[Rfam]
Shown here is a 134-nucleotide RNA sequence from Microtus ochrogaster, a member of the family "U11 spliceosomal RNA".

RNA sequence: UAAAAGGGCUUCUGUCAUGAGUGGCACACAUAGGGCAACUUGAUUGUGCUGCCUGUGGAAUCGACAUCAAGAUAUUUUGGAAGCAUAAUUUUUUGGUACUUGGGCAGCUGGUGAUCAUUGUUCCACACCCCCCC
Numbered sequence: 001u002a003a004a005a006g007g008g009c010u011u012c013u014g015u016c017a018u019g020a021g022u023g024g025c026a027c028a029c030a031u032a033g034g035g036c037a038a039c040u041u042g043a044u045u046g047u048g049c050u051g052c053c054u055g056u057g058g059a060a061u062c063g064a065c066a067u068c069a070a071g072a073u074a075u076u077u078u079g080g081a082a083g084c085a086u087a088a089u090u091u092u093u094u095g096g097u098a099c100u101u102g103g104g105c106a107g108c109u110g111g112u113g114a115u116c117a118u119u120g121u122u123c124c125a126c127a128c129c130c131c132c133c134c
Stems, first nucleotide, its partner, number of pairs: 008084005013026005027055002031051003035047004056079006102132003107128001111124001113123002116120001
The organism belongs to Microtus, within Eukaryota. It scores 87 bits against the family's covariance model. The family has 72 seed sequences and 2,595 matches in Rfam 15.1. By type it is a spliceosomal small nuclear RNA. Clan: U1 clan.